Shown here is an 87-nucleotide RNA from Bacillus salinus, a member of the family "c-di-GMP-I-GGC riboswitch aptamer". The organism belongs to Bacillus, within Bacteria. A search with the family's covariance model found it, with a score of 60 bits. Its Rfam clan is "c-di-GMP_I riboswitch clan".

Nucleotides: 087
Base pairs, nucleotide, nucleotide: 001087004083011036012035016031017030018029019028020027021026034073039080040079041078042077044076045075046074047071048070049069
Number, partner (000 for none) and nucleotide at each position: 001087g002000u003000g004083g005000u006000g007000a008000a009000g010000g011036g012035c013000a014000a015000a016031c017030c018029u019028a020027u021026u022000g023000a024000a025000a026021a027020a028019u029018a030017g031016g032000g033000a034073c035012g036011c037000a038000a039080a040079g041078g042077c043000a044076u045075g046074g047071g048070u049069c050000g051000u052000c053000g054000a055000u056000a057000c058000a059000u060000u061000a062000g063000u064000a065000u066000a067000c068000c069049g070048a071047u072000u073034g074046c075045c076044a077042g078041c079040c080039u081000g082000c083004u084000a085000a086000c087001c